RNA sequence: GAUAGCCGUAGAUGACAAAGGGAUUCAGUGUCGGACUGUUGACAAGACGCACAGCAUGAAUUGUGGCAUCAUAGAUUCCUCCCCAAAACAUGGCUUUUCCCACUAACAAUAAUGCUCCUGCACCAAGGAAAAGUAAGUGGUGUCCGAGAAUAAAACCAAGUUUUUUUGGAUCAUUCCA
Numbered sequence: 001g002a003u004a005g006c007c008g009u010a011g012a013u014g015a016c017a018a019a020g021g022g023a024u025u026c027a028g029u030g031u032c033g034g035a036c037u038g039u040u041g042a043c044a045a046g047a048c049g050c051a052c053a054g055c056a057u058g059a060a061u062u063g064u065g066g067c068a069u070c071a072u073a074g075a076u077u078c079c080u081c082c083c084c085a086a087a088a089c090a091u092g093g094c095u096u097u098u099c100c101c102a103c104u105a106a107c108a109a110u111a112a113u114g115c116u117c118c119u120g121c122a123c124c125a126a127g128g129a130a131a132a133g134u135a136a137g138u139g140g141u142g143u144c145c146g147a148g149a150a151u152a153a154a155a156c157c158a159a160g161u162u163u164u165u166u167u168g169g170a171u172c173a174u175u176c177c178a
Base pairs, nucleotide, nucleotide: 136175137174138173139172140171141170144169145168146167147166148165
Dot-bracket structure: .......................................................................................................................................((((((..(((((................)))))))))))...
The record is a 178-nucleotide sequence from Calothrix sp. PCC 6303, which matches "Antisense RNA which regulates isiA expression" in Rfam.
Pairs were carried over by alignment from the consensus structure, which was predicted with PFOLD.